A member of the RNA family "small Cajal body-specific RNA 17" from Sus scrofa, 146 nucleotides long. On this family, see Tycowski et al., Curr Biol 2004: "Guide RNAs with 5' Caps and Novel Box C/D snoRNA-like Domains for Modification of snRNAs in Metazoa". Its family is annotated with nucleolus, Cajal body and RNA processing in the Gene Ontology. The match comes from Rfam's covariance-model search (90 bits). NCBI's taxonomy places the organism under Eukaryota, Opisthokonta, Deuterostomia, Chordata, Sus. scaRNAs are a specific class of small nuclear RNAs which localise to the Cajal bodies and guide the modification of RNA polymerase II transcribed spliceosomal RNAs U1, U2, U4, U5 and U12. The complete human U12-22/U4-8 scaRNA is composed of two tandem C/D box domains (termed U12-22 and U4-8). The family's RNA type in Rfam is small Cajal body RNA.
[Rfam]
RNA sequence: CCCCCUGUUCCACUUUGCAGGCCCCGAAUGAAGCCGCAGUAUUUUCCUUAUAUGAUUGGGCCCCAUGGCUUGGCAGCGCUGCUGCUGGCCUGGAGCCUGAGAGGAUUAUAAUACGUGACUGGCGAGGUGGGGGCCGGGAACGGGGG
Numbered sequence: 001c002c003c004c005c006u007g008u009u010c011c012a013c014u015u016u017g018c019a020g021g022c023c024c025c026g027a028a029u030g031a032a033g034c035c036g037c038a039g040u041a042u043u044u045u046c047c048u049u050a051u052a053u054g055a056u057u058g059g060g061c062c063c064c065a066u067g068g069c070u071u072g073g074c075a076g077c078g079c080u081g082c083u084g085c086u087g088g089c090c091u092g093g094a095g096c097c098u099g100a101g102a103g104g105a106u107u108a109u110a111a112u113a114c115g116u117g118a119c120u121g122g123c124g125a126g127g128u129g130g131g132g133g134c135c136g137g138g139a140a141c142g143g144g145g146g
Stems, first nucleotide, its partner, number of pairs: 001146003005143007013136001022131003056100006063093002068089003072083004